[Rfam]
c-di-AMP riboswitch aptamer (ydaO/yuaA leader): a 160-nucleotide RNA from Streptomyces sp. A0642. A reference for the family is Barrick et al. (2004), "New RNA motifs suggest an expanded scope for riboswitches in bacterial genetic control", Proc Natl Acad Sci U S A. About the family: This family represents a conserved RNA structure found upstream of the ydaO and yuaA genes in Bacillus subtilis and related genes in other bacteria. Lineage of the source: Bacteria > Bacillati > Actinomycetota > Kitasatosporales > Streptomyces.
RNA sequence: CCGGAAUUCGCACCCACUUCACCGCGUGGCAGGAGCGGGGGAACCAGGUAAGCCGCCGACCGGGAAUCCGGCCGGCUCGGGGUGAAGUCGCGCCAGUCGCGACCGGACAUCUCCAGUCCGAACCCGACAGCUCACCUCGCAGGCGCCGGAGAGGGAAUCC
Numbered sequence: 001c002c003g004g005a006a007u008u009c010g011c012a013c014c015c016a017c018u019u020c021a022c023c024g025c026g027u028g029g030c031a032g033g034a035g036c037g038g039g040g041g042a043a044c045c046a047g048g049u050a051a052g053c054c055g056c057c058g059a060c061c062g063g064g065a066a067u068c069c070g071g072c073c074g075g076c077u078c079g080g081g082g083u084g085a086a087g088u089c090g091c092g093c094c095a096g097u098c099g100c101g102a103c104c105g106g107a108c109a110u111c112u113c114c115a116g117u118c119c120g121a122a123c124c125c126g127a128c129a130g131c132u133c134a135c136c137u138c139g140c141a142g143g144c145g146c147c148g149g150a151g152a153g154g155g156a157a158u159c160c
Stems, first nucleotide, its partner, number of pairs: 001143002007034003035140006045079001080125003088102004105119004